[Rfam]
RNA sequence: GCAAUAAAUGAAGCAUAUGAGCGGACAGCGACACCCUUAUAGAACGGGGGUGGCGCCAAUGACAGUAUUUCAAGCCUUAUCACUGAUGGUUUCUUUCGGUGUGCUGGUACUCAUGCUGUCAGACAGAAAAAAGAAAUGAUCCGCUUCAUAUGCCAUUGCACCGGCUGAAGCGGAUCGGGUGAAAACUAUUCGACUGUGAAGCGCUGUUCCGCUCUUAUCGCGGAUAUUGCCAUUCCGUCAGUGUUACAGCACUGGCG
Number, nucleotide and partner (000 for none) at each position: 001g230002c229003a228004a227005u226006a000007a000008a000009u000010g000011a000012a000013g000014c152015a151016u150017a149018u148019g147020a146021g145022c000023g141024g140025a000026c138027a000028g000029c000030g000031a000032c052033a051034c050035c049036c048037u047038u046039a000040u000041a000042g000043a000044a000045c000046g038047g037048g036049g035050g034051u033052g032053g000054c000055g000056c000057c000058a000059a000060u000061g120062a119063c118064a117065g116066u115067a114068u000069u000070u000071c000072a000073a000074g000075c088076c000077u000078u000079a000080u000081c000082a000083c000084u000085g000086a000087u000088g075089g000090u000091u000092u000093c000094u000095u000096u000097c000098g112099g111100u000101g110102u000103g000104c000105u000106g000107g000108u000109a000110c101111u099112c098113a000114u067115g066116c065117u064118g063119u062120c061121a000122g000123a000124c000125a000126g000127a000128a000129a000130a000131a000132a000133g000134a000135a000136a000137u000138g026139a000140u024141c023142c000143g000144c000145u021146u020147c019148a018149u017150a016151u015152g014153c000154c000155a000156u000157u000158g000159c000160a000161c000162c000163g000164g000165c000166u000167g000168a000169a000170g000171c000172g000173g000174a000175u000176c000177g000178g000179g000180u000181g000182a000183a000184a000185a000186c000187u000188a000189u000190u000191c000192g000193a000194c000195u000196g000197u000198g000199a000200a000201g000202c000203g000204c000205u000206g000207u000208u000209c223210c222211g221212c220213u000214c000215u000216u000217a000218u000219c000220g212221c211222g210223g209224a000225u000226a005227u004228u003229g002230c001231c000232a000233u000234u000235c000236c257237g256238u255239c254240a253241g252242u251243g250244u249245u000246a000247c000248a000249g244250c243251a242252c241253u240254g239255g238256c237257g236

The family of this 257-nucleotide sequence from Sporolactobacillus putidus is "BsrG". NCBI's taxonomy places the organism under Bacteria, Bacillati, Bacillota, Bacilli, Sporolactobacillus. Its family is annotated with toxin activity and autolysis in the Gene Ontology. Pairs were carried over by alignment from the consensus structure, which was predicted with WAR. bsrE, bsrG and bsrH pair through intermolecular interactions with antisense sRNAs. They form type I toxin/antitoxin system that includes an mRNA encoding for a short, toxic peptide (bsrE, bsrG and bsrH) and an antitoxin that is comprised of an antisense RNA. bsrG encodes a 39-amino-acid toxin, and the 180 nucleotide antisense sRNA called SR4 acts as the antitoxin (they overlap by 123 nucleotides). SR4 interaction with the 3'UTR of bsrG RNA promotes bsrG degradation and inhibits its translation. BsrG interferes with cell envelope biosynthesis, causes membrane invaginations and delocalisation of the cell wall synthesis and initiates autolysis. bsrE RNA encodes 30 amino-acid toxin peptide. Its antitoxin gene, SR5 overlaps by 112 nucleotides at the 3' end of bsrE. SR5 also overlaps bsrG from nucleotide 163 to 52 (Rfam overlap check). The antitoxin SR5 promotes bsrE degradation but unlike SR4 it does not directly inhibits toxin mRNA translation.